About this RNA: Shown here is a 296-nucleotide RNA from Acrobeloides nanus, a member of the family "Nuclear RNase P". The family has 116 seed sequences and 3,848 matches in Rfam 15.1.
[Rfam]
RNA sequence: GGCCACAAGAUGGUUGCGGGAGCCACUCAAAGACACUCGUUGUCUCACAUUAUUUCCCGGGAAGGUCUGAGAAAAGGCCCCGGUCUCUUCGGAGUCCGUACCGCCUAGAAGGCGGACCUCUUCAGGAGGUGGUGCUGUACUAGAAACAUUCUGUGUUCCUUGGGCAAUAGGACACGAAGCUAGCCUCAGGUUGGGGUUAGUGGAUCCUCCCUUGGUGCACAUUCGAACUACAGUGCCGGUGCUGGCACAUGCUGAGUGCGAUAACCGAAUAACUCAAUUCAGACUACUCUGUGGCC
Numbered sequence: 001g002g003c004c005a006c007a008a009g010a011u012g013g014u015u016g017c018g019g020g021a022g023c024c025a026c027u028c029a030a031a032g033a034c035a036c037u038c039g040u041u042g043u044c045u046c047a048c049a050u051u052a053u054u055u056c057c058c059g060g061g062a063a064g065g066u067c068u069g070a071g072a073a074a075a076g077g078c079c080c081c082g083g084u085c086u087c088u089u090c091g092g093a094g095u096c097c098g099u100a101c102c103g104c105c106u107a108g109a110a111g112g113c114g115g116a117c118c119u120c121u122u123c124a125g126g127a128g129g130u131g132g133u134g135c136u137g138u139a140c141u142a143g144a145a146a147c148a149u150u151c152u153g154u155g156u157u158c159c160u161u162g163g164g165c166a167a168u169a170g171g172a173c174a175c176g177a178a179g180c181u182a183g184c185c186u187c188a189g190g191u192u193g194g195g196g197u198u199a200g201u202g203g204a205u206c207c208u209c210c211c212u213u214g215g216u217g218c219a220c221a222u223u224c225g226a227a228c229u230a231c232a233g234u235g236c237c238g239g240u241g242c243u244g245g246c247a248c249a250u251g252c253u254g255a256g257u258g259c260g261a262u263a264a265c266c267g268a269a270u271a272a273c274u275c276a277a278u279u280c281a282g283a284c285u286a287c288u289c290u291g292u293g294g295c296c
Stems, first nucleotide, its partner, number of pairs: 001296002005292003011268001013266001015264001018058005031045005067282005077242002079239001101115005116130006132236007152221003